[Rfam]
RNA sequence: AAGAUACCACUAUGUUUCGUUGACGUAGUCAACAACAUCCCAGUCAGCAAGGGUCUUUAAUGCUGAGGUAUCUAUUAGAUAUUGGCCCACUGCCAGCUCGUCAAACACCCACUUAACGAGCGAUAUCAUUUCGAUGAUAGGGUGU
Numbered sequence: 001a002a003g004a005u006a007c008c009a010c011u012a013u014g015u016u017u018c019g020u021u022g023a024c025g026u027a028g029u030c031a032a033c034a035a036c037a038u039c040c041c042a043g044u045c046a047g048c049a050a051g052g053g054u055c056u057u058u059a060a061u062g063c064u065g066a067g068g069u070a071u072c073u074a075u076u077a078g079a080u081a082u083u084g085g086c087c088c089a090c091u092g093c094c095a096g097c098u099c100g101u102c103a104a105a106c107a108c109c110c111a112c113u114u115a116a117c118g119a120g121c122g123a124u125a126u127c128a129u130u131u132c133g134a135u136g137a138u139a140g141g142g143u144g145u
Base pairs, nucleotide, nucleotide: 012038013037014036016034019033020032021031022030023029024028044066045065046064047063048062049061052087053086054085055084067083068082069081070080071079072078073077116145117144118143124139125138126137127136128135129134
A member of the RNA family "radC RNA" from Zophobihabitans entericus, 145 nucleotides long. Pairs were carried over by alignment from the consensus structure, which is taken from published work. The source organism's lineage runs through Bacteria, Pseudomonadota, Gammaproteobacteria, Orbaceae and Zophobihabitans. Rfam 15.1 lists 500 matches to the family in 142 species.